RNA: NiCo (Nickel/Cobalt) riboswitch aptamer
Organism: Cellulosilyticum lentocellum
RNA sequence: UUAAUGAGAAUAAAUCAGGUUAUUAUGUUGGAUGUAAUAACUGGGCCAAUUUAUUGGCAACAGGAAUUAAACCUGUGGGACUAUA
Numbered sequence: 001u002u003a004a005u006g007a008g009a010a011u012a013a014a015u016c017a018g019g020u021u022a023u024u025a026u027g028u029u030g031g032a033u034g035u036a037a038u039a040a041c042u043g044g045g046c047c048a049a050u051u052u053a054u055u056g057g058c059a060a061c062a063g064g065a066a067u068u069a070a071a072c073c074u075g076u077g078g079g080a081c082u083a084u085a
Stems, first nucleotide, its partner, number of pairs: 010084003016079001018042010045058005060076005